[Rfam]
RNA sequence: CCUAUGGAGUGUACAAGAACCUGUAAGUAGAUAUUGUAGAAAUACAAAUUGAAAGCAUACACAAUGAAGUAGGAA
Numbered sequence: 001c002c003u004a005u006g007g008a009g010u011g012u013a014c015a016a017g018a019a020c021c022u023g024u025a026a027g028u029a030g031a032u033a034u035u036g037u038a039g040a041a042a043u044a045c046a047a048a049u050u051g052a053a054a055g056c057a058u059a060c061a062c063a064a065u066g067a068a069g070u071a072g073g074a075a
Stems, first nucleotide, its partner, number of pairs: 001073005009062005022057003030050003034047005
Shown here is a 75-nucleotide RNA, a member of the family "RAGATH-18 RNA". Rfam's curators write: Actinobacteria, Firmicutes, Fusobacteria, Thermotogae (1 example). Rfam's curators put it in the seed alignment. The family's RNA type in Rfam is small RNA.